[Rfam]
RNA sequence: UGAUGUCAUGAUGAUUGGCUAAAUGUUCAACUGCUCUGAAUUGUGAAUGACUUCUGCCUUUCUGAACAUAC
Numbered sequence: 001u002g003a004u005g006u007c008a009u010g011a012u013g014a015u016u017g018g019c020u021a022a023a024u025g026u027u028c029a030a031c032u033g034c035u036c037u038g039a040a041u042u043g044u045g046a047a048u049g050a051c052u053u054c055u056g057c058c059u060u061u062c063u064g065a066a067c068a069u070a071c
Stems, first nucleotide, its partner, number of pairs: 003069004
RNA: Small nucleolar RNA Z40